[Rfam]
RNA sequence: AUGAUCAAUAUUAGAGAGAAUGAAUUGUUAAUAGUAAACAAUUCAUCGCCGAAGGUGCAAGUUUAACGAAACUCUCAGGCAAAAGGAUAAUAUUGUGACG
Numbered sequence: 001a002u003g004a005u006c007a008a009u010a011u012u013a014g015a016g017a018g019a020a021u022g023a024a025u026u027g028u029u030a031a032u033a034g035u036a037a038a039c040a041a042u043u044c045a046u047c048g049c050c051g052a053a054g055g056u057g058c059a060a061g062u063u064u065a066a067c068g069a070a071a072c073u074c075u076c077a078g079g080c081a082a083a084a085g086g087a088u089a090a091u092a093u094u095g096u097g098a099c100g
Base pairs, nucleotide, nucleotide: 006095007094008093009092010091011090012089013088020046021045022044023043024042025041026040027039028038029037048080049079050078051076052075055074057072061067062066